[Rfam]
RNA sequence: UCGCUUGAACAUAAACCGCCGGCGGCCUAUCUUGGGCGUGCCGGGUAACCGGCUACGUCGGUAGAGUAUUUGGUGGAAUAGGCAUUUCGGACCCGGGGGGCAGUACCCCGGCGCCUCCACCACCAGCGGCGGGUGUUUUCGAAGGUUCGAAAGCGCCGCUGCUGAUGGGGGCGAAACAGGAUCGACGAGUGCAAUAAAGGCCAGGUUGCCGAUCGGUAUGGGUCCACCGCAAAGGCCCAUUCACACAAGUGCCAACGAUAACGAGGCUCUUGCGAUUGCUGCCUAACUGAGGGCCUAACGGUCUGAAGUUAGAUGGACAAAAGCGCGGCCGGACCCCGCCGGGCAACAGAAGGGGAAUCCA
Numbered sequence: 001u002c003g004c005u006u007g008a009a010c011a012u013a014a015a016c017c018g019c020c021g022g023c024g025g026c027c028u029a030u031c032u033u034g035g036g037c038g039u040g041c042c043g044g045g046u047a048a049c050c051g052g053c054u055a056c057g058u059c060g061g062u063a064g065a066g067u068a069u070u071u072g073g074u075g076g077a078a079u080a081g082g083c084a085u086u087u088c089g090g091a092c093c094c095g096g097g098g099g100g101c102a103g104u105a106c107c108c109c110g111g112c113g114c115c116u117c118c119a120c121c122a123c124c125a126g127c128g129g130c131g132g133g134u135g136u137u138u139u140c141g142a143a144g145g146u147u148c149g150a151a152a153g154c155g156c157c158g159c160u161g162c163u164g165a166u167g168g169g170g171g172c173g174a175a176a177c178a179g180g181a182u183c184g185a186c187g188a189g190u191g192c193a194a195u196a197a198a199g200g201c202c203a204g205g206u207u208g209c210c211g212a213u214c215g216g217u218a219u220g221g222g223u224c225c226a227c228c229g230c231a232a233a234g235g236c237c238c239a240u241u242c243a244c245a246c247a248a249g250u251g252c253c254a255a256c257g258a259u260a261a262c263g264a265g266g267c268u269c270u271u272g273c274g275a276u277u278g279c280u281g282c283c284u285a286a287c288u289g290a291g292g293g294c295c296u297a298a299c300g301g302u303c304u305g306a307a308g309u310u311a312g313a314u315g316g317a318c319a320a321a322a323g324c325g326c327g328g329c330c331g332g333a334c335c336c337c338g339c340c341g342g343g344c345a346a347c348a349g350a351a352g353g354g355g356a357a358u359c360c361a
Stems, first nucleotide, its partner, number of pairs: 040053005057213005068206007083191003087188003093111005112173007214229004219239003224235002326341004332360001337355001
Background
The record is a 361-nucleotide RNA sequence from Sphingomonas rhizophila, which matches "Alphaproteobacteria transfer-messenger RNA" in Rfam. NCBI's taxonomy places the organism under Bacteria, Pseudomonadota, Alphaproteobacteria, Sphingomonadaceae, Sphingomonas. It scores 208 bits against the family's covariance model. About the family: Bacterial tmRNA, also known as 10Sa RNA or SsrA, is named for its dual tRNA and mRNA-like properties. Its role is to liberate the mRNA from a stalled ribosome.